Shown here is a 98-nucleotide sequence from a Desulfobacteraceae bacterium, a member of the family "c-di-GMP-I riboswitch aptamer". The match comes from Rfam's covariance-model search (80 bits).
RNA sequence: GUUGAAUAAAGGCAAACCAUCCGAAAGGGUGGGACGCAAAGCCACUGGCCUAAAUCCUAAAAAUAAUAUUCAGGGGAUAUGGCGGCAGGGUUGCCUGA
Numbered sequence: 001g002u003u004g005a006a007u008a009a010a011g012g013c014a015a016a017c018c019a020u021c022c023g024a025a026a027g028g029g030u031g032g033g034a035c036g037c038a039a040a041g042c043c044a045c046u047g048g049c050c051u052a053a054a055u056c057c058u059a060a061a062a063a064u065a066a067u068a069u070u071c072a073g074g075g076g077a078u079a080u081g082g083c084g085g086c087a088g089g090g091u092u093g094c095c096u097g098a
Stems, first nucleotide, its partner, number of pairs: 012037002017032006040092004045088003048083003055077004
Dot-bracket structure: ...........((...((((((....))))))...))..((((.((((((....((((...............))))...)))..)))))))......
Record summary
Lineage of the source: Bacteria > Pseudomonadati > Thermodesulfobacteriota > Desulfobacteria > Desulfobacteraceae.